[Rfam]
The family of this 95-nucleotide RNA sequence from Gossypium hirsutum is "Small nucleolar RNA R44/J54/Z268 family". Lineage of the source: Eukaryota > Tracheophyta > Magnoliopsida > Pentapetalae > Gossypium. It is annotated as a C/D-box small nucleolar RNA. Rfam links the family to the GO terms nucleolus and RNA processing. The base pairs follow the family's consensus structure, which was predicted with PFOLD. Clan: SNORD74 clan. The family has 29 seed sequences and 1,168 matches in Rfam 15.1.
RNA sequence: UAGGCAGAUGAUGAUAAGAAUAGACAGGGACAUCUGCACUCCCUUCUUUGGGUGAUUGAUGACUUAGUCUUAAAUGAGAAUCUCUCUGAUGCUUU
Number, nucleotide and partner (000 for none) at each position: 001u000002a094003g093004g092005c091006a090007g000008a000009u000010g000011a000012u000013g000014a000015u000016a000017a000018g000019a000020a000021u000022a000023g000024a000025c000026a000027g000028g000029g000030a000031c000032a000033u000034c000035u000036g000037c000038a000039c000040u000041c000042c000043c000044u000045u000046c000047u000048u000049u000050g000051g000052g000053u000054g000055a000056u000057u000058g000059a000060u000061g000062a000063c000064u000065u000066a000067g000068u000069c000070u000071u000072a000073a000074a000075u000076g000077a000078g000079a000080a000081u000082c000083u000084c000085u000086c000087u000088g000089a000090u006091g005092c004093u003094u002095u000